RNA sequence: UUGUUCUUUGGUCUUUCAGCCAUGACCUGACCUUCUGUCUGUGAGACCAAAGAACUACU
Number, nucleotide and partner (000 for none) at each position: 001u000002u000003g055004u054005u053006c052007u051008u050009u049010g048011g047012u046013c045014u044015u043016u000017c041018a040019g039020c000021c037022a036023u000024g035025a034026c000027c000028u000029g000030a000031c000032c000033u000034u025035c024036u022037g021038u000039c019040u018041g017042u000043g015044a014045g013046a012047c011048c010049a009050a008051a007052g006053a005054a004055c003056u000057a000058c000059u000
The family of this 59-nucleotide RNA sequence from Homo sapiens is "mir-4677 microRNA precursor family".
Pairs were carried over by alignment from the consensus structure, which was predicted with RNAalifold.
The source organism's lineage runs through Eukaryota, Vertebrata, Boreoeutheria, Hominoidea and Homo.